[Rfam]
RNA sequence: CAGUUGAAUUUGAGAAUCGGAUGGAACCAAAUCUUAUUGCGAAAACGAAGCAAGGCUUGGUUUCCUCCAAUAUCUCAUGUUCAGUAU
Numbered sequence: 001c002a003g004u005u006g007a008a009u010u011u012g013a014g015a016a017u018c019g020g021a022u023g024g025a026a027c028c029a030a031a032u033c034u035u036a037u038u039g040c041g042a043a044a045a046c047g048a049a050g051c052a053a054g055g056c057u058u059g060g061u062u063u064c065c066u067c068c069a070a071u072a073u074c075u076c077a078u079g080u081u082c083a084g085u086a087u
Stems, first nucleotide, its partner, number of pairs: 004084005011077004016071002019068003023064008032055002
A member of the RNA family "MIR2275 microRNA precursor family" from Panicum virgatum, 87 nucleotides long.
Pairs were carried over by alignment from the consensus structure, which was predicted with RNAalifold.
The match comes from Rfam's covariance-model search (69 bits).